[Rfam]
RNA: miR-430 microRNA precursor family
Organism: Etheostoma spectabile
RNA sequence: CAGAUCACCUCAAAUGGAGACACUGAUGAUUAUGUGUUCAUAAGUGCUUCUCUUUGGGGUUGUCUUG
Numbered sequence: 001c002a003g004a005u006c007a008c009c010u011c012a013a014a015u016g017g018a019g020a021c022a023c024u025g026a027u028g029a030u031u032a033u034g035u036g037u038u039c040a041u042a043a044g045u046g047c048u049u050c051u052c053u054u055u056g057g058g059g060u061u062g063u064c065u066u067g
Stems, first nucleotide, its partner, number of pairs: 004063002007060005014054001016051004021046004026041003